[Rfam]
RNA sequence: GGGUGAUGCCUCCUAACCCUUACCAAUGGAGACACUCGAUCACGCUGUGGGUGGAGCAACUGUUCCGAACCUUAGACAUUUAUUGUCAUUAGUGGGGUGUGAGGGUGGGUUAGAUGCCCA
Numbered sequence: 001g002g003g004u005g006a007u008g009c010c011u012c013c014u015a016a017c018c019c020u021u022a023c024c025a026a027u028g029g030a031g032a033c034a035c036u037c038g039a040u041c042a043c044g045c046u047g048u049g050g051g052u053g054g055a056g057c058a059a060c061u062g063u064u065c066c067g068a069a070c071c072u073u074a075g076a077c078a079u080u081u082a083u084u085g086u087c088a089u090u091a092g093u094g095g096g097g098u099g100u101g102a103g104g105g106u107g108g109g110u111u112a113g114a115u116g117c118c119c120a
Stems, first nucleotide, its partner, number of pairs: 001019004007034002010031004035103004039098003043094004049072004054065003075087004106120005